[Rfam]
Nucleotides: 069
Base pairs, nucleotide, nucleotide: 006023007022008021009020036052037051038050043063044062
Number, partner (000 for none) and nucleotide at each position: 001000g002000a003000a004000a005000a006023g007022u008021g009020g010000a011000g012000u013000c014000c015000a016000g017000c018000a019000c020009c021008c022007a023006c024000u025000c026000a027000a028000a029000a030000a031000a032000a033000c034000g035000g036052g037051g038050c039000a040000u041000a042000u043063c044062c045000g046000a047000a048000a049000a050038g051037c052036c053000u054000u055000a056000c057000g058000a059000g060000u061000a062044g063043g064000a065000a066000u067000u068000u069000a
Record summary:
Rfam assigns this 69-nucleotide RNA from Mariniphaga anaerophila to the family "DUF805 RNA". The family's RNA type in Rfam is cis-regulatory element. It scores 76 bits against the family's covariance model. Rfam 15.1 lists 281 matches to the family in 219 species.